Record summary:
Shown here is an 84-nucleotide sequence, a member of the family "Peptidase-S11 RNA". It is annotated as a cis-regulatory element. The base pairs follow the family's consensus structure, which is taken from published work.
RNA sequence: GGUAUGAUAGGGUUUGCCAGCGUUGCCUGUUUCCCGGCGACGCAGCGUACGUUAAUAACGUGCAAGAAUACUUUUCAGAAUGCU
Numbered sequence: 001g002g003u004a005u006g007a008u009a010g011g012g013u014u015u016g017c018c019a020g021c022g023u024u025g026c027c028u029g030u031u032u033c034c035c036g037g038c039g040a041c042g043c044a045g046c047g048u049a050c051g052u053u054a055a056u057a058a059c060g061u062g063c064a065a066g067a068a069u070a071c072u073u074u075u076c077a078g079a080a081u082g083c084u
Base pairs, nucleotide, nucleotide: 016046017045020043021042022041023040024039025038026037027036047063048062049061050060051059052058